[Rfam]
RNA: Mason-Pfizer monkey virus packaging signal
Organism: Mus musculus
RNA sequence: UGGCGCCCAGAAAGUGGGGCUGGAGUACGAAGGGACCAGUGAAGAUCACCUCAGUUUUUUUUUGGUCAGCCAAUGAAUUUUGUAUGGACGAUGUCUUGCACGGGAAUCUGCCACCUCGACUAGGGAUCCUAGUAAGUUUGCGGUGAUCACUGAGACAGACCUUGAAUAGCCAUGAAUUAUUUGUGGAAAGGUUGAAAAAGGCUUUAAAGGUGUGAGGGAUGAAGGUUAAAAUACAUGAUUGGCUUGCAUUUUUUUAUUUUGUUUAAGAGAUUUGCCCAU
Numbered sequence: 001u002g003g004c005g006c007c008c009a010g011a012a013a014g015u016g017g018g019g020c021u022g023g024a025g026u027a028c029g030a031a032g033g034g035a036c037c038a039g040u041g042a043a044g045a046u047c048a049c050c051u052c053a054g055u056u057u058u059u060u061u062u063u064g065g066u067c068a069g070c071c072a073a074u075g076a077a078u079u080u081u082g083u084a085u086g087g088a089c090g091a092u093g094u095c096u097u098g099c100a101c102g103g104g105a106a107u108c109u110g111c112c113a114c115c116u117c118g119a120c121u122a123g124g125g126a127u128c129c130u131a132g133u134a135a136g137u138u139u140g141c142g143g144u145g146a147u148c149a150c151u152g153a154g155a156c157a158g159a160c161c162u163u164g165a166a167u168a169g170c171c172a173u174g175a176a177u178u179a180u181u182u183g184u185g186g187a188a189a190g191g192u193u194g195a196a197a198a199a200g201g202c203u204u205u206a207a208a209g210g211u212g213u214g215a216g217g218g219a220u221g222a223a224g225g226u227u228a229a230a231a232u233a234c235a236u237g238a239u240u241g242g243c244u245u246g247c248a249u250u251u252u253u254u255u256a257u258u259u260u261g262u263u264u265a266a267g268a269g270a271u272u273u274g275c276c277c278a279u
Stems, first nucleotide, its partner, number of pairs: 006034003014028003039049002091130001093128001094126002098121001099118001102112002136156004141152004163206003167201001214254007224240005267276001
Dot-bracket structure: .....(((.....(((.........)))...)))....((.......)).........................................(.(((..((..((.......)).....)..)...)).).).....((((.((((....))))))))......(((.(.................................)..))).......(((((((...(((((.......))))).......)))))))............(........)...